[Rfam]
RNA: Actinobacteria sRNA Ms_IGR-5
RNA sequence: ACACAGGAGAGGAGGUGGUCCGACGUUGAAUAGCUGCUGGACUUGUGAGGUGGCUGUCCGCUAGUACCACGGGACGAUCUCCGACGGCCGAUGGAAGCCGGAAUGUGGUACCGGCGAAUUCCAGGCAGUCACCCGCGAUCCCCGGGUUCGGGCCCGUCCAGCCCGAUCACGCGCCGUCAGGUGCGGCCCGGGGAUCACGCAUGUC
Numbered sequence: 001a002c003a004c005a006g007g008a009g010a011g012g013a014g015g016u017g018g019u020c021c022g023a024c025g026u027u028g029a030a031u032a033g034c035u036g037c038u039g040g041a042c043u044u045g046u047g048a049g050g051u052g053g054c055u056g057u058c059c060g061c062u063a064g065u066a067c068c069a070c071g072g073g074a075c076g077a078u079c080u081c082c083g084a085c086g087g088c089c090g091a092u093g094g095a096a097g098c099c100g101g102a103a104u105g106u107g108g109u110a111c112c113g114g115c116g117a118a119u120u121c122c123a124g125g126c127a128g129u130c131a132c133c134c135g136c137g138a139u140c141c142c143c144g145g146g147u148u149c150g151g152g153c154c155c156g157u158c159c160a161g162c163c164c165g166a167u168c169a170c171g172c173g174c175c176g177u178c179a180g181g182u183g184c185g186g187c188c189c190g191g192g193g194a195u196c197a198c199g200c201a202u203g204u205c
Base pairs, nucleotide, nucleotide: 014058015057016056017055018054019053059116060115061114062113064111065110067108068107069106070105134199135198137196138195139194140193141192142191143190144189145188146187148166149165150164151163152162153161